[Rfam]
RNA sequence: UCGGUCCCGGUUCACGGGCGGCAACCCGCCUCCCGACCCGGCGCC
Number, nucleotide and partner (000 for none) at each position: 001u000002c000003g045004g044005u043006c000007c041008c040009g039010g038011u000012u000013c000014a000015c035016g034017g033018g032019c000020g030021g029022c028023a000024a000025c000026c000027c000028g022029c021030c020031u000032c018033c017034c016035g015036a000037c000038c010039c009040g008041g007042c000043g005044c004045c003

A member of the RNA family "L31-Actinobacteria ribosomal protein leader" from Streptomyces xiaopingdaonensis, 45 nucleotides long. Rfam's curators put it in the seed alignment. The source organism's lineage runs through Bacteria, Bacillati, Actinomycetes, Streptomycetaceae and Streptomyces.